[Rfam]
The family of this 304-nucleotide RNA from Camellia sinensis is "Plant signal recognition particle RNA".

RNA sequence: GCCGAGCUAAGUAGCACUAACCUGUGCCUCGUUCGAGGGCAUUUUGGUUGCAGGACAAUGUUUCGAUCCAUUUAGACAGGUUCAGUGAGCUGCGCUUGCUGGCUUGCCCGGUCCAAGUUGGGAGUUGGCUCAUGCAGCCCAAGCGAAGGCUUCUUCUUCAACGCUCGUAGAGUGGAGGGCAUAACGUCAGGCUGGUUUCACAGAGCAGUGAUAACCUCCCGCUCUCGACAGCGGAAGGUUGACAAGCCGGUGCACUCUUGGGCAAUAUUGCCUGGUGACUCGAUUACAUUGAACAGCCAUUUUU
Dot-bracket structure: ((((.(.((........)).).)....(((....)))))).....(((.((.(..((.(((.((((.....((((.((.((((((..(..((((....((((((((.((..(((..(((((((((.((.(..((.((...((((....))))...)).))..).)).......(((((....(.(((....(((......)))....))).)..))))).)))))))))...))).))....)))))))))))).).)))))).....)).))))....))))..))).))..).)).)))...
The source organism's lineage runs through Eukaryota, Magnoliopsida, Mesangiospermae, eudicotyledons and Camellia sinensis.
A search with the family's covariance model found it, with a score of 162 bits.
By type it is a non-coding RNA gene.
The family is grouped with related families in Rfam's "SRP clan".